[Rfam]
RNA sequence: UUUGCGCCGGCAGGUCUUACACGACCAGCUCCUGCUGAACCCUCCCAGGGCCGGAAGGCAGCAAGAGUAGGUGGUUGAGCGGUGCGAUGUAAUCAGCCUGCCAUUUU
Numbered sequence: 001u002u003u004g005c006g007c008c009g010g011c012a013g014g015u016c017u018u019a020c021a022c023g024a025c026c027a028g029c030u031c032c033u034g035c036u037g038a039a040c041c042c043u044c045c046c047a048g049g050g051c052c053g054g055a056a057g058g059c060a061g062c063a064a065g066a067g068u069a070g071g072u073g074g075u076u077g078a079g080c081g082g083u084g085c086g087a088u089g090u091a092a093u094c095a096g097c098c099u100g101c102c103a104u105u106u107u
Base pairs, nucleotide, nucleotide: 009102010101011100012099013098014097015096017092018091019090020089021088022086023085024083025082